This 591-nucleotide part of an RNA from Corynebacterium gerontici belongs to the Rfam family "Bacterial large subunit ribosomal RNA". The family's consensus secondary structure is taken from published work.

[Rfam]
RNA sequence: CGCGCGGCAGGACGAAAAGACCCCGGGACCUUCACUAUAGCUUGGUAUUGAUAUUCGGUUCGGUUUGUGUAGCAUAGGUGGGAGACGUUAUCAGCACACCACGCCAGUGGGAGUGUCAGUCACAGGUGAAAUACCACUCUGAUCGAAUUGGGUAUCUAUCAACCUCGGCCCAUGAUCUGGGUCAGGGACAGUGCCUGGUGGGUAGUUUAACUGGGGCGGUUGCCUCCUAAACAGUAACGGAGGCGCCCAAAGGUUCCCUCAGCCUGGUUGGCAAUCAGGUGGUGAGUGUAAGUGCACAAGGGAGCUUGACUGUGAGAGUGACAACUCAAGCAGGGACGAAAGUCGGGACUAGUGAUCCGGCACCGACGAGUGGAAGUGGUGUCGCUCAACGGAUAAAAGGUACCCCGGGGAUAACAGGCUGAUCUUCCCAAGAGUCCAUAUCGACGGGAUGGUUUGGCACCUCGAUGUCGGCUCGUCGCAUCCUGGGGCUGGAGUAGGUCCCAAGGGUUGGGCUGUUCGCCCAUUAAAGCGGCACGCGAGCUGGGUUUAGAACGUCGUGAGACAGUUCGGUCUCUAUCCGCCGCGCGCGUA
Numbered sequence: 001c002g003c004g005c006g007g008c009a010g011g012a013c014g015a016a017a018a019g020a021c022c023c024c025g026g027g028a029c030c031u032u033c034a035c036u037a038u039a040g041c042u043u044g045g046u047a048u049u050g051a052u053a054u055u056c057g058g059u060u061c062g063g064u065u066u067g068u069g070u071a072g073c074a075u076a077g078g079u080g081g082g083a084g085a086c087g088u089u090a091u092c093a094g095c096a097c098a099c100c101a102c103g104c105c106a107g108u109g110g111g112a113g114u115g116u117c118a119g120u121c122a123c124a125g126g127u128g129a130a131a132u133a134c135c136a137c138u139c140u141g142a143u144c145g146a147a148u149u150g151g152g153u154a155u156c157u158a159u160c161a162a163c164c165u166c167g168g169c170c171c172a173u174g175a176u177c178u179g180g181g182u183c184a185g186g187g188a189c190a191g192u193g194c195c196u197g198g199u200g201g202g203u204a205g206u207u208u209a210a211c212u213g214g215g216g217c218g219g220u221u222g223c224c225u226c227c228u229a230a231a232c233a234g235u236a237a238c239g240g241a242g243g244c245g246c247c248c249a250a251a252g253g254u255u256c257c258c259u260c261a262g263c264c265u266g267g268u269u270g271g272c273a274a275u276c277a278g279g280u281g282g283u284g285a286g287u288g289u290a291a292g293u294g295c296a297c298a299a300g301g302g303a304g305c306u307u308g309a310c311u312g313u314g315a316g317a318g319u320g321a322c323a324a325c326u327c328a329a330g331c332a333g334g335g336a337c338g339a340a341a342g343u344c345g346g347g348a349c350u351a352g353u354g355a356u357c358c359g360g361c362a363c364c365g366a367c368g369a370g371u372g373g374a375a376g377u378g379g380u381g382u383c384g385c386u387c388a389a390c391g392g393a394u395a396a397a398a399g400g401u402a403c404c405c406c407g408g409g410g411a412u413a414a415c416a417g418g419c420u421g422a423u424c425u426u427c428c429c430a431a432g433a434g435u436c437c438a439u440a441u442c443g444a445c446g447g448g449a450u451g452g453u454u455u456g457g458c459a460c461c462u463c464g465a466u467g468u469c470g471g472c473u474c475g476u477c478g479c480a481u482c483c484u485g486g487g488g489c490u491g492g493a494g495u496a497g498g499u500c501c502c503a504a505g506g507g508u509u510g511g512g513c514u515g516u517u518c519g520c521c522c523a524u525u526a527a528a529g530c531g532g533c534a535c536g537c538g539a540g541c542u543g544g545g546u547u548u549a550g551a552a553c554g555u556c557g558u559g560a561g562a563c564a565g566u567u568c569g570g571u572c573u574c575u576a577u578c579c580g581c582c583g584c585g586c587g588c589g590u591a
Stems, first nucleotide, its partner, number of pairs: 001587008010579003014574002022409006028401005034206004041198002044195004050156016067139001077138005084121003095115003099110004163186003167183006209221004222244006245390001247347002253305006259285002262280006286295002310333004316327003335344003358384007366377002418458003422455001423452002426449004432442002469544001470542004474536001475533005482507002485502006509523005550568004554563003